[Rfam]
RNA sequence: GACUGGUCCAAAGGUAGUAAGUUAUCUCAAUUAAUUGUUCACAGUUAUAGACCUAACUCCCUAUUCUACUUUUCCCCCUUCUCACUACUACACUUGACUAGUUUUAA
Numbered sequence: 001g002a003c004u005g006g007u008c009c010a011a012a013g014g015u016a017g018u019a020a021g022u023u024a025u026c027u028c029a030a031u032u033a034a035u036u037g038u039u040c041a042c043a044g045u046u047a048u049a050g051a052c053c054u055a056a057c058u059c060c061c062u063a064u065u066c067u068a069c070u071u072u073u074c075c076c077c078c079u080u081c082u083c084a085c086u087a088c089u090a091c092a093c094u095u096g097a098c099u100a101g102u103u104u105u106a107a
Stems, first nucleotide, its partner, number of pairs: 001103008010095002014091002016086003020082002043067002